[Rfam]
RNA sequence: AUCCGCUAGGCGGGGCUCUGGCUGGGUACGCUCGGCUUUAGAGCGCGCGGACCCGGCCGAUCCCGCGAGGCGAGGUCGGAUGGUGGUGGUGGCCGUGAUGGUGCGGCGUGCGGGUCAUUGCGGGGGCGGUGUAGCGGAUGGCGGCGGUGAGGGGAAGGGCUUCGUUCAAAGCC
Numbered sequence: 001a002u003c004c005g006c007u008a009g010g011c012g013g014g015g016c017u018c019u020g021g022c023u024g025g026g027u028a029c030g031c032u033c034g035g036c037u038u039u040a041g042a043g044c045g046c047g048c049g050g051a052c053c054c055g056g057c058c059g060a061u062c063c064c065g066c067g068a069g070g071c072g073a074g075g076u077c078g079g080a081u082g083g084u085g086g087u088g089g090u091g092g093c094c095g096u097g098a099u100g101g102u103g104c105g106g107c108g109u110g111c112g113g114g115u116c117a118u119u120g121c122g123g124g125g126g127c128g129g130u131g132u133a134g135c136g137g138a139u140g141g142c143g144g145c146g147g148u149g150a151g152g153g154g155a156a157g158g159g160c161u162u163c164g165u166u167c168a169a170a171g172c173c
Base pairs, nucleotide, nucleotide: 002014003013004012005011006010015160016159017158018157020058021057022056023055024054025053026052027051029049030048031047033045034044061154062153063152064151066149067148070145071144075139076138077137079135083132084131085130087128088127090126093123094122095121098118099117100116101115102114104112105111
Description: The record is a 173-nucleotide RNA from Caulobacter vibrioides, which matches "caulobacter sRNA CC3513" in Rfam. The organism belongs to Caulobacter vibrioides, within Bacteria. The literature on the family includes a 2008 paper in Mol Microbiol by Landt et al., "Small non-coding RNAs in Caulobacter crescentus". The pairing is the family consensus, mapped onto this sequence. By type it is a small RNA.